[Rfam]
RNA sequence: ACACAAGAGAGGAGGUGGUCCAGAAGUGAUUUCCCUUCGGACUCGUGAGGUGGCUGUCCGCUAAGGACCACCGCAGCGAAUACCAGGCAGUCACCCGGCCCUCGGGCUCUCGGGGCGGAGUCCACCCCGAGCCCCACGCCACGCGUGGGGAAGCAGCCCGGGGGCUGUCCUAU
Numbered sequence: 001a002c003a004c005a006a007g008a009g010a011g012g013a014g015g016u017g018g019u020c021c022a023g024a025a026g027u028g029a030u031u032u033c034c035c036u037u038c039g040g041a042c043u044c045g046u047g048a049g050g051u052g053g054c055u056g057u058c059c060g061c062u063a064a065g066g067a068c069c070a071c072c073g074c075a076g077c078g079a080a081u082a083c084c085a086g087g088c089a090g091u092c093a094c095c096c097g098g099c100c101c102u103c104g105g106g107c108u109c110u111c112g113g114g115g116c117g118g119a120g121u122c123c124a125c126c127c128c129g130a131g132c133c134c135c136a137c138g139c140c141a142c143g144c145g146u147g148g149g150g151a152a153g154c155a156g157c158c159c160g161g162g163g164g165c166u167g168u169c170c171u172a173u
Stems, first nucleotide, its partner, number of pairs: 014058006059078004096167013110130006
RNA: Actinobacteria sRNA Ms_IGR-5